Shown here is a 37-nucleotide sequence from Synechocystis sp. PCC 6803, a member of the family "CRISPR RNA direct repeat element". It is one of the family's seed sequences. Pairs were carried over by alignment from the consensus structure, which was predicted with WAR. Lineage of the source: Bacteria > Bacillati > Cyanophyceae > Synechococcales > Synechocystis.
[Rfam]
RNA sequence: CGUUUCCAAACCAUUGAUGCCGUAAAGCGUUUGGCGC
Dot-bracket structure: ...............(((((......)))))......